[Rfam]
RNA sequence: CGUUUUUUUUCUUAUGUUUGAUCCUUGGUUUGGAUCCUUAUUAUUCAAACCAAGGAUCAAACAUAAGAAAAAAACGGU
Number, nucleotide and partner (000 for none) at each position: 001c000002g000003u000004u000005u074006u073007u072008u071009u070010u000011c067012u066013u065014a064015u063016g062017u061018u060019u059020g058021a057022u056023c055024c054025u053026u000027g051028g050029u049030u048031u047032g000033g000034a000035u000036c000037c000038u000039u000040a000041u000042u000043a000044u000045u000046c000047a031048a030049a029050c028051c027052a000053a025054g024055g023056a022057u021058c020059a019060a018061a017062c016063a015064u014065a013066a012067g011068a000069a000070a009071a008072a007073a006074a005075c000076g000077g000078u000

Rfam assigns this 78-nucleotide RNA from Cyphomyrmex costatus to the family "mir-190 microRNA precursor family". Taxonomically the source falls in Cyphomyrmex (Eukaryota, Protostomia, Mandibulata, Allotriocarida). The family's consensus secondary structure was predicted with RNAalifold. A reference for the family is Kloosterman et al. (2006), "Cloning and expression of new microRNAs from zebrafish", Nucleic Acids Res.